[Rfam]
RNA sequence: AUGGCCCCUCUAUGGCAACGAGGGCUGCGGGUGGGCGGGGUGGCUCCUGUCCCCCCGCGGCUCCCGGCCUAGUUGGGGCCC
Numbered sequence: 001a002u003g004g005c006c007c008c009u010c011u012a013u014g015g016c017a018a019c020g021a022g023g024g025c026u027g028c029g030g031g032u033g034g035g036c037g038g039g040g041u042g043g044c045u046c047c048u049g050u051c052c053c054c055c056c057g058c059g060g061c062u063c064c065c066g067g068c069c070u071a072g073u074u075g076g077g078g079c080c081c
Stems, first nucleotide, its partner, number of pairs: 003080006014069003019066002022063010033052008